Shown here is a 57-nucleotide sequence from Pseudomonas aeruginosa, a member of the family "Guanidine-II riboswitch aptamer (mini-ykkC)". Rfam describes the family as follows. Simpler in structure and has fewer highly conserved nucleotide positions than the ykkC-yxkD leader. Despite this each of its two stem-loop structures directly bind free guanidine. Therefore, mini-ykkC RNA motif represents a distinct class of guanidine-sensing RNAs. It scores 34 bits against the family's covariance model. Taxonomically the source falls in Pseudomonas aeruginosa (Bacteria, Pseudomonadota, Pseudomonadaceae, Pseudomonas). Rfam links the family to the GO term regulation of gene expression.
[Rfam]
RNA sequence: CAGUGAGGACGACCUCACCACCCGCCUCCGGCCGGUGAUCGAAUGGGGACGGCCCCG
Numbered sequence: 001c002a003g004u005g006a007g008g009a010c011g012a013c014c015u016c017a018c019c020a021c022c023c024g025c026c027u028c029c030g031g032c033c034g035g036u037g038a039u040c041g042a043a044u045g046g047g048g049a050c051g052g053c054c055c056c057g
Stems, first nucleotide, its partner, number of pairs: 003018006044057005